[Rfam]
RNA sequence: UCUGAUAUGCUUGAUCGGACCUCCGCUGGUUUCCUAUGCGGUGAUAUUCCAAUGCAAAUAUUAUCACCGGGUGAAAACUGGUAGAGGUCCGAUUCACUCGG
Numbered sequence: 001u002c003u004g005a006u007a008u009g010c011u012u013g014a015u016c017g018g019a020c021c022u023c024c025g026c027u028g029g030u031u032u033c034c035u036a037u038g039c040g041g042u043g044a045u046a047u048u049c050c051a052a053u054g055c056a057a058a059u060a061u062u063a064u065c066a067c068c069g070g071g072u073g074a075a076a077a078c079u080g081g082u083a084g085a086g087g088u089c090c091g092a093u094u095c096a097c098u099c100g101g
Stems, first nucleotide, its partner, number of pairs: 016091007025082008034073001037070001039069001041067006
A member of the RNA family "mir-36 microRNA precursor family" from Caenorhabditis nigoni, 101 nucleotides long. Rfam 15.1 lists 199 matches to the family in 31 species. Pairs were carried over by alignment from the consensus structure, which was predicted with WAR. Lineage of the source: Eukaryota > Ecdysozoa > Chromadorea > Rhabditidae > Caenorhabditis.